[Rfam]
RNA: Group I catalytic intron
RNA sequence: UGUGAGCUAUUAGUUGGCCAGUAGUAUUGAGCUCGCAACUCUAUACGUUAUACCUUCAAAUUGACGGGAACCUCCUAAAGCUACUUAAACCAAGCAAUUUUAGUAAUGAAAUUGUGGCUGAAUUAACUACUCAGGUAAGGUAAUAUAUAAGUAGAUUCCGUAAGGGAAUGGACAAUCCGCAGCCAAGCUCCUCCUUUCUUUUAGAAUUAAUGGUAUGAAAAUAUAUCAUUGAAAUCUUAUUAAGGGGGUGUGCAGUUCAUCGACUAAAUGUAGGUAGACAAAUAAUAGUAAGAAGGUGUCCAAUGCUUCGCAGCUUUGUGAUAAAUUAUAUUAUUAUUUAUUUGUUUAAGAUAUAGUCAAGCCUCACUCGAAAGGGUGCA
Numbered sequence: 001u002g003u004g005a006g007c008u009a010u011u012a013g014u015u016g017g018c019c020a021g022u023a024g025u026a027u028u029g030a031g032c033u034c035g036c037a038a039c040u041c042u043a044u045a046c047g048u049u050a051u052a053c054c055u056u057c058a059a060a061u062u063g064a065c066g067g068g069a070a071c072c073u074c075c076u077a078a079a080g081c082u083a084c085u086u087a088a089a090c091c092a093a094g095c096a097a098u099u100u101u102a103g104u105a106a107u108g109a110a111a112u113u114g115u116g117g118c119u120g121a122a123u124u125a126a127c128u129a130c131u132c133a134g135g136u137a138a139g140g141u142a143a144u145a146u147a148u149a150a151g152u153a154g155a156u157u158c159c160g161u162a163a164g165g166g167a168a169u170g171g172a173c174a175a176u177c178c179g180c181a182g183c184c185a186a187g188c189u190c191c192u193c194c195u196u197u198c199u200u201u202u203a204g205a206a207u208u209a210a211u212g213g214u215a216u217g218a219a220a221a222u223a224u225a226u227c228a229u230u231g232a233a234a235u236c237u238u239a240u241u242a243a244g245g246g247g248g249u250g251u252g253c254a255g256u257u258c259a260u261c262g263a264c265u266a267a268a269u270g271u272a273g274g275u276a277g278a279c280a281a282a283u284a285a286u287a288g289u290a291a292g293a294a295g296g297u298g299u300c301c302a303a304u305g306c307u308u309c310g311c312a313g314c315u316u317u318g319u320g321a322u323a324a325a326u327u328a329u330a331u332u333a334u335u336a337u338u339u340a341u342u343u344g345u346u347u348a349a350g351a352u353a354u355a356g357u358c359a360a361g362c363c364u365c366a367c368u369c370g371a372a373a374g375g376g377u378g379c380a
Base pairs, nucleotide, nucleotide: 002018029041030040051276052275053274054273055272057270058269062181063180065179066178067177068176073172074171075170182256183255187251190248191247196243197242200239260359262358263357264356265355266354278345279344280343281342282341283340284339285338365378366377367376368375369374